RNA: c-di-AMP riboswitch aptamer (ydaO/yuaA leader)
Organism: Embleya scabrispora
RNA sequence: CGAGGGAAGCAGUCGAUAUCGACUGGCGGCAGGAGCGGGGGAACCAAGUGAGCCGACAUCGGCACUGCCGAUGCCUGGGGUGAAGCCAUGCCUGUGACAGGCGAGGCCGGGCCAAUCGUCCGAACCCGACAGCUAACUUCGUAGGCGCCCGACGAGGUAAUCA
Numbered sequence: 001c002g003a004g005g006g007a008a009g010c011a012g013u014c015g016a017u018a019u020c021g022a023c024u025g026g027c028g029g030c031a032g033g034a035g036c037g038g039g040g041g042a043a044c045c046a047a048g049u050g051a052g053c054c055g056a057c058a059u060c061g062g063c064a065c066u067g068c069c070g071a072u073g074c075c076u077g078g079g080g081u082g083a084a085g086c087c088a089u090g091c092c093u094g095u096g097a098c099a100g101g102c103g104a105g106g107c108c109g110g111g112c113c114a115a116u117c118g119u120c121c122g123a124a125c126c127c128g129a130c131a132g133c134u135a136a137c138u139u140c141g142u143a144g145g146c147g148c149c150c151g152a153c154g155a156g157g158u159a160a161u162c163a
Base pairs, nucleotide, nucleotide: 001032035142036141037140038139039138040137045077046076078127079126080125086106087105089103090102091101109121110120111119112118